[Rfam]
RNA sequence: AUACUUACCUGGCAGGGGAGAUUCCAUGAUCACAAAGGUGGUUUUCCCAGGGUGAAGCUUAUCCAUUGCACUCCGGAUAUGCUGACCCCUGCGAUUUCCCCAAAUGUGGGAAACUCAACUGCAUGAUUUGUGGUAGUGGGGGACUGCGUUUGCGCUCUCAAA
Numbered sequence: 001a002u003a004c005u006u007a008c009c010u011g012g013c014a015g016g017g018g019a020g021a022u023u024c025c026a027u028g029a030u031c032a033c034a035a036a037g038g039u040g041g042u043u044u045u046c047c048c049a050g051g052g053u054g055a056a057g058c059u060u061a062u063c064c065a066u067u068g069c070a071c072u073c074c075g076g077a078u079a080u081g082c083u084g085a086c087c088c089c090u091g092c093g094a095u096u097u098c099c100c101c102a103a104a105u106g107u108g109g110g111a112a113a114c115u116c117a118a119c120u121g122c123a124u125g126a127u128u129u130g131u132g133g134u135a136g137u138g139g140g141g142g143a144c145u146g147c148g149u150u151u152g153c154g155c156u157c158u159c160a161a162a
Stems, first nucleotide, its partner, number of pairs: 012122004016048006024041004049090004054086001056083003060079005093116002095113003099109002137161001139159003143156001145154002
RNA: U1 spliceosomal RNA
Organism: Erinaceus europaeus